[Rfam]
Shown here is a 77-nucleotide RNA from Merops nubicus, a member of the family "Small nucleolar RNA SNORD66".

RNA sequence: CUCCUGUGAUGAACUCUGCUUUACGACUUCGUGUCUGGGCCACUGAUGCUCCAUGAUGGUGUUGAGGAUCUGAGGAG
Number, nucleotide and partner (000 for none) at each position: 001c077002u076003c075004c074005u000006g000007u000008g000009a000010u000011g000012a000013a000014c000015u000016c000017u000018g000019c000020u000021u000022u000023a000024c000025g000026a000027c000028u000029u000030c000031g000032u000033g000034u000035c000036u000037g000038g000039g000040c000041c000042a000043c000044u000045g000046a000047u000048g000049c000050u000051c000052c000053a000054u000055g000056a000057u000058g000059g000060u000061g000062u000063u000064g000065a000066g000067g000068a000069u000070c000071u000072g000073a000074g004075g003076a002077g001

snoRNA HBII-142 is part of the C/D family of snoRNAs. It is the human orthologue of the mouse MBII-142 snoRNA and is predicted to guide 2'O-ribose methylation of small 18S rRNA at residue C1272. The family's consensus secondary structure was predicted with RNAalifold. Gene Ontology terms of the family: nucleolus and RNA processing. NCBI's taxonomy places the organism under Eukaryota, Bilateria, Teleostomi, Dinosauria, Merops. For this family Rfam cites "RNomics: an experimental approach that identifies 201 candidates for novel, small, non-messenger RNAs in mouse" (Huttenhofer et al., EMBO J, 2001).